[Rfam]
The family of this 77-nucleotide sequence from Diceros bicornis is "Small nucleolar RNA U2-19". The literature on the family includes a 2004 paper in Curr Biol by Tycowski et al., "Guide RNAs with 5' Caps and Novel Box C/D snoRNA-like Domains for Modification of snRNAs in Metazoa". Gene Ontology terms of the family: RNA processing and nucleolus. The match comes from Rfam's covariance-model search (79 bits). Rfam classes the family as a C/D-box small nucleolar RNA. Lineage of the source: Eukaryota > Opisthokonta > Eutheria > Perissodactyla > Diceros bicornis.
RNA sequence: GACCAGUGAUGAAAACAGACGAAUCUGAGCAUCAGAUCUUCCAGUCUACCUGAUGCAUGAUUUUUCUAGUUCUGAGA
Numbered sequence: 001g002a003c004c005a006g007u008g009a010u011g012a013a014a015a016c017a018g019a020c021g022a023a024u025c026u027g028a029g030c031a032u033c034a035g036a037u038c039u040u041c042c043a044g045u046c047u048a049c050c051u052g053a054u055g056c057a058u059g060a061u062u063u064u065u066c067u068a069g070u071u072c073u074g075a076g077a
Stems, first nucleotide, its partner, number of pairs: 029056005034047004